Source information:
This 169-nucleotide RNA from Vibrio sp. qd031 belongs to the Rfam family "Vibrio RNA AS7". It is annotated as an antisense RNA. It scores 141 bits against the family's covariance model. The organism belongs to Vibrio, within Bacteria. The base pairs follow the family's consensus structure, which was predicted with RNAfold. Identified by direct cloning an parallel sequencing experiments with 5S/tRNA depletion.
RNA sequence: GGUGUUUGCAGUAAUAGCUUACUGCGUUCAGUGAUGUCGCCACCAAUGUGGUAUGGAAGACCACAGUUUGCAAAGGACACGAAAGGGCCACGUUCGAACAUAAUGAUCUGUGCAUCUUCGCUCAGACGUCGAGCACGUGCGGCUGCAGAAGCGCCUCCAGCAACGCCAC
Numbered sequence: 001g002g003u004g005u006u007u008g009c010a011g012u013a014a015u016a017g018c019u020u021a022c023u024g025c026g027u028u029c030a031g032u033g034a035u036g037u038c039g040c041c042a043c044c045a046a047u048g049u050g051g052u053a054u055g056g057a058a059g060a061c062c063a064c065a066g067u068u069u070g071c072a073a074a075g076g077a078c079a080c081g082a083a084a085g086g087g088c089c090a091c092g093u094u095c096g097a098a099c100a101u102a103a104u105g106a107u108c109u110g111u112g113c114a115u116c117u118u119c120g121c122u123c124a125g126a127c128g129u130c131g132a133g134c135a136c137g138u139g140c141g142g143c144u145g146c147a148g149a150a151g152c153g154c155c156u157c158c159a160g161c162a163a164c165g166c167c168a169c
Base pairs, nucleotide, nucleotide: 001167002166003165004164005163006162008161009160011025012024013023015021016020032056034054035053036052037051038050039049040048061070075155076154085146086144087143088142092140093139095137096136099133101131104128105127107125110123112121113120